The record is an 83-nucleotide RNA sequence from Caenorhabditis elegans, which matches "mir-266 microRNA precursor family" in Rfam. Lineage of the source: Eukaryota > Nematoda > Chromadorea > Peloderinae > Caenorhabditis. The family's consensus secondary structure was predicted with RNAalifold. It scores 82 bits against the family's covariance model.

RNA sequence: GGGCAAAAGUUUGGCAAGUCUUUGGCAAAACUUGGAUUCAGGAGACAUCAAAGUUUAACUCAAGUUUUACCCAACUCUUGCCA
Numbered sequence: 001g002g003g004c005a006a007a008a009g010u011u012u013g014g015c016a017a018g019u020c021u022u023u024g025g026c027a028a029a030a031c032u033u034g035g036a037u038u039c040a041g042g043a044g045a046c047a048u049c050a051a052a053g054u055u056u057a058a059c060u061c062a063a064g065u066u067u068u069a070c071c072c073a074a075c076u077c078u079u080g081c082c083a
Stems, first nucleotide, its partner, number of pairs: 002082005008076004013071002017067002020064002024060002028056006